[Rfam]
The family of this 208-nucleotide RNA sequence from Butyrivibrio sp. XB500-5 is "6S / SsrS RNA". The source organism's lineage runs through Bacteria, Bacillati, Clostridia, Lachnospiraceae and Butyrivibrio. The match comes from Rfam's covariance-model search (58 bits). The base pairs follow the family's consensus structure, which is taken from published work.
RNA sequence: GUUCUCCUGGGGUGUCCGACAACUCCUGUGUAAUUUGAACCUACAUUUCUUUAAACGGGACUCCUACAUUACCAUAAUAAAUGUCACGCCUUCGGCCCUGCGCAUGCGCAGACCAGCUAUGGGAGAGGAAGACAGGCAUCAUGGUUGCGGUAACCCACCUGGCGAUAGCUAGGAGUCAAAUAACAGGAACCGGCAUUUUGGGAUUUAA
Numbered sequence: 001g002u003u004c005u006c007c008u009g010g011g012g013u014g015u016c017c018g019a020c021a022a023c024u025c026c027u028g029u030g031u032a033a034u035u036u037g038a039a040c041c042u043a044c045a046u047u048u049c050u051u052u053a054a055a056c057g058g059g060a061c062u063c064c065u066a067c068a069u070u071a072c073c074a075u076a077a078u079a080a081a082u083g084u085c086a087c088g089c090c091u092u093c094g095g096c097c098c099u100g101c102g103c104a105u106g107c108g109c110a111g112a113c114c115a116g117c118u119a120u121g122g123g124a125g126a127g128g129a130a131g132a133c134a135g136g137c138a139u140c141a142u143g144g145u146u147g148c149g150g151u152a153a154c155c156c157a158c159c160u161g162g163c164g165a166u167a168g169c170u171a172g173g174a175g176u177c178a179a180a181u182a183a184c185a186g187g188a189a190c191c192g193g194c195a196u197u198u199u200g201g202g203a204u205u206u207a208a
Base pairs, nucleotide, nucleotide: 005203006202007201008200009199010198011197012196013195014194015193017192018191031183033181034180036178037177038176040173041172057156058155059154063150064149068146071145072144073143074142075141077139083133084132089128090127091126092125
Dot-bracket structure: ....(((((((((((.((............(.((.(((.((...............(((...((...(..(((((.(.....((....((((................................))))...)).....).))))))..))...)))...............))..))).)).).......))))))))))))).....